[Rfam]
RNA sequence: ACAGUACAAACUGAGCAGGCGUCAGCUUUUAACAGCUGUAAGCCGGGUUGCUUUCGCAACAGCAGAUGAUAUGAAAGCAUCUGUGGGACAGUA
Numbered sequence: 001a002c003a004g005u006a007c008a009a010a011c012u013g014a015g016c017a018g019g020c021g022u023c024a025g026c027u028u029u030u031a032a033c034a035g036c037u038g039u040a041a042g043c044c045g046g047g048u049u050g051c052u053u054u055c056g057c058a059a060c061a062g063c064a065g066a067u068g069a070u071a072u073g074a075a076a077g078c079a080u081c082u083g084u085g086g087g088a089c090a091g092u093a
Stems, first nucleotide, its partner, number of pairs: 010092004016087001018044003023038005047060005062084006